Overview:
The family of this 142-nucleotide sequence from Drosophila mojavensis is "Small nucleolar RNA psi28S-2876". From the family's description: psi28S-2876 is a member of the H/ACA class of snoRNA. This family is responsible for guiding the modification of uridines 2876 and 2956 to pseudouridine in Drosophila 28S rRNA.
RNA sequence: GUUUUGGCCAGCAACGAUGGCGCGCAGUUCGAGCACAGAGAUUGCGUUCUUAUAACGUUGGCUAUAAUAAACAUCUAUCUAUCCGUAGCGUCACAAUGUGUAAUUAACCGACAUUUGGCGUAUGAACCGAAGAGACAUUUAC
Numbered sequence: 001g002u003u004u005u006g007g008c009c010a011g012c013a014a015c016g017a018u019g020g021c022g023c024g025c026a027g028u029u030c031g032a033g034c035a036c037a038g039a040g041a042u043u044g045c046g047u048u049c050u051u052a053u054a055a056c057g058u059u060g061g062c063u064a065u066a067a068u069a070a071a072c073a074u075c076u077a078u079c080u081a082u083c084c085g086u087a088g089c090g091u092c093a094c095a096a097u098g099u100g101u102a103a104u105u106a107a108c109c110g111a112c113a114u115u116u117g118g119c120g121u122a123u124g125a126a127c128c129g130a131a132g133a134g135a136c137a138u139u140u141a142c
Base pairs, nucleotide, nucleotide: 005064006063007062008061009060010059011058012057024045025044026043027042028041090136091135092134097129098128103123104122105120108118109117110116111115

Lineage of the source: Eukaryota > Allotriocarida > Drosophilidae > Drosophilinae > mojavensis species complex.
The base pairs follow the family's consensus structure, which was predicted with PFOLD.